The record is a 178-nucleotide sequence from Marininema mesophilum, which matches "Lysine riboswitch aptamer" in Rfam.
RNA sequence: GUGUGUAUGAGAGGCGCAAUGGACCAUCAGUAUCCACCGCGAGGAAACGGUAACCGUUGACCGGUGGAGAAAGGGGCCAUUGCCGAAGUCGAUGAUCCUGCCGUAGGAGAUCGGCUGGGCCCGCAGCUGAACAAGGGCGGGACUGUCACGGAUUUAUCCGUGGAGCACUGAUCACCGG
Numbered sequence: 001g002u003g004u005g006u007a008u009g010a011g012a013g014g015c016g017c018a019a020u021g022g023a024c025c026a027u028c029a030g031u032a033u034c035c036a037c038c039g040c041g042a043g044g045a046a047a048c049g050g051u052a053a054c055c056g057u058u059g060a061c062c063g064g065u066g067g068a069g070a071a072a073g074g075g076g077c078c079a080u081u082g083c084c085g086a087a088g089u090c091g092a093u094g095a096u097c098c099u100g101c102c103g104u105a106g107g108a109g110a111u112c113g114g115c116u117g118g119g120c121c122c123g124c125a126g127c128u129g130a131a132c133a134a135g136g137g138c139g140g141g142a143c144u145g146u147c148a149c150g151g152a153u154u155u156a157u158c159c160g161u162g163g164a165g166c167a168c169u170g171a172u173c174a175c176c177g178g
Stems, first nucleotide, its partner, number of pairs: 007172002010169002016083007024075001033068007087116007096107002117144002120141005146163007
Notes:
The source organism's lineage runs through Bacteria, Bacillati, Bacilli, Thermoactinomycetaceae and Marininema. From the family's description: Riboswitches are metabolite binding domains within certain messenger RNAs that serve as precision sensors for their corresponding targets.